[Rfam]
RNA: Mammalian CPEB3 ribozyme
RNA sequence: AAAAGAUAAAAAGGGUCACAGUGGGAGCGUUUACUUCGUCCCCUGUCAGAUGCAGACCUUUGCGAAUCCUGUA
Numbered sequence: 001a002a003a004a005g006a007u008a009a010a011a012a013g014g015g016u017c018a019c020a021g022u023g024g025g026a027g028c029g030u031u032u033a034c035u036u037c038g039u040c041c042c043c044u045g046u047c048a049g050a051u052g053c054a055g056a057c058c059u060u061u062g063c064g065a066a067u068c069c070u071g072u073a
Base pairs, nucleotide, nucleotide: 013043014042015041021072022071023070024069025068026067027039028038029037047062048061049060050059052057